[Rfam]
RNA sequence: UAAUACCAGGGUUCAAAGGUACAAAUCCGAUUGUGCUUGCACAAGAAGGAUUUGGAACUUGGAACCCGCAAACCACGAGCAUGCAGCGCUAUUGCGCGGAAUGAGAGUGGUUUAGGAUUACGUGAGCAUCGUUAGAUGCGUAGUAAUCCGUGGUAUUU
Numbered sequence: 001u002a003a004u005a006c007c008a009g010g011g012u013u014c015a016a017a018g019g020u021a022c023a024a025a026u027c028c029g030a031u032u033g034u035g036c037u038u039g040c041a042c043a044a045g046a047a048g049g050a051u052u053u054g055g056a057a058c059u060u061g062g063a064a065c066c067c068g069c070a071a072a073c074c075a076c077g078a079g080c081a082u083g084c085a086g087c088g089c090u091a092u093u094g095c096g097c098g099g100a101a102u103g104a105g106a107g108u109g110g111u112u113u114a115g116g117a118u119u120a121c122g123u124g125a126g127c128a129u130c131g132u133u134a135g136a137u138g139c140g141u142a143g144u145a146a147u148c149c150g151u152g153g154u155a156u157u158u
Base pairs, nucleotide, nucleotide: 002157003156004155005154006153007152010066011065012064013063016060017059018058020056022054023053024052025051026050027049028048031044032043033042034041035040070113071112072111073110074109075108076107080103081102082101086097087096088095089094115149116148117147118146119145120144121143126139127138128137129136
The record is a 158-nucleotide RNA from a Lachnospiraceae bacterium, which matches "Clostridiales-1 RNA" in Rfam. Rfam classes the family as a small RNA. Rfam 15.1 lists 1,172 matches to the family in 137 species. The family's consensus secondary structure is taken from published work. NCBI's taxonomy places the organism under Bacteria, Bacillati, Clostridia, Lachnospirales, Lachnospiraceae.